[Rfam]
RNA sequence: AGAUGAGAGAGACACCCCGCCCGCAGGGCACUGCGGGCGACACCGGGCCGGGCCCUCGCCGGAUCCGCCCCGGGUGCGCCUGCGCGCAUCCCGCCGGAGCCUCUGGCUCCGGUACUCCUCACCGGUCGGA
Numbered sequence: 001a002g003a004u005g006a007g008a009g010a011g012a013c014a015c016c017c018c019g020c021c022c023g024c025a026g027g028g029c030a031c032u033g034c035g036g037g038c039g040a041c042a043c044c045g046g047g048c049c050g051g052g053c054c055c056u057c058g059c060c061g062g063a064u065c066c067g068c069c070c071c072g073g074g075u076g077c078g079c080c081u082g083c084g085c086g087c088a089u090c091c092c093g094c095c096g097g098a099g100c101c102u103c104u105g106g107c108u109c110c111g112g113u114a115c116u117c118c119u120c121a122c123c124g125g126u127c128g129g130a
Stems, first nucleotide, its partner, number of pairs: 004121004009117002018039009043073005049067004054062001076089001078087002094112008122129002
The record is a 130-nucleotide sequence from Streptomyces sp. ADI96-02, which matches "Streptomyces RNA 5676" in Rfam.
A search with the family's covariance model found it, with a score of 93 bits.
Taxonomically the source falls in Streptomyces (Bacteria, Bacillati, Actinomycetota, Actinomycetes).
The base pairs follow the family's consensus structure.
A reference for the family is Vockenhuber et al. (2011), "Deep sequencing-based identification of small non-coding RNAs in Streptomyces coelicolor", RNA Biol.
The family's RNA type in Rfam is small RNA.